[Rfam]
RNA: Archaeal RNase P
Organism: Thermoplasmatales archaeon Gpl
RNA sequence: GAAAGCUCGAGGGCAGCUUACGCUCCAGUGGAGUGAGGAAAGUCUCCCCUCCUGGGUGGGUAUCAGCCUGCAAUGCAGGUAUUCCGAGAGGAAUGGCAACGACAAAAGAAAGAAACAUUUCCAGGUAAAGAAUGAUUCCCUGAGGAUGACAUUUCCUGGAUCGAUGAUGGAACAGUCGACCUGAUUGGAGAAAGUCCAAAGAGACCCCGUGAGACCACUCUGAGGGUCGGGUAGGACGCAGCGUGCCUUAUGGCCAUAGUCGAAUGCUGCCAGCCUGAUUUACAGGGGAACAGAAGGGAGCUUACUCCGGGCAUUC
Numbered sequence: 001g002a003a004a005g006c007u008c009g010a011g012g013g014c015a016g017c018u019u020a021c022g023c024u025c026c027a028g029u030g031g032a033g034u035g036a037g038g039a040a041a042g043u044c045u046c047c048c049c050u051c052c053u054g055g056g057u058g059g060g061u062a063u064c065a066g067c068c069u070g071c072a073a074u075g076c077a078g079g080u081a082u083u084c085c086g087a088g089a090g091g092a093a094u095g096g097c098a099a100c101g102a103c104a105a106a107a108g109a110a111a112g113a114a115a116c117a118u119u120u121c122c123a124g125g126u127a128a129a130g131a132a133u134g135a136u137u138c139c140c141u142g143a144g145g146a147u148g149a150c151a152u153u154u155c156c157u158g159g160a161u162c163g164a165u166g167a168u169g170g171a172a173c174a175g176u177c178g179a180c181c182u183g184a185u186u187g188g189a190g191a192a193a194g195u196c197c198a199a200a201g202a203g204a205c206c207c208c209g210u211g212a213g214a215c216c217a218c219u220c221u222g223a224g225g226g227u228c229g230g231g232u233a234g235g236a237c238g239c240a241g242c243g244u245g246c247c248u249u250a251u252g253g254c255c256a257u258a259g260u261c262g263a264a265u266g267c268u269g270c271c272a273g274c275c276u277g278a279u280u281u282a283c284a285g286g287g288g289a290a291c292a293g294a295a296g297g298g299a300g301c302u303u304a305c306u307c308c309g310g311g312c313a314u315u316c
Base pairs, nucleotide, nucleotide: 001316002315003314005312006311007310008309009308010306011305012271013270014269015268016267017266021035022034023033024032025031040303041302042301044300045299046298047297048296049190050189051188052187054221055220056219059216062185063184064183065182066080067079068078069077070076081094082093083092084091085090095181096180100178101177102176103175116166117165118164120160121159122158123157124156125155137146138145194255196253197252201249202248203247205245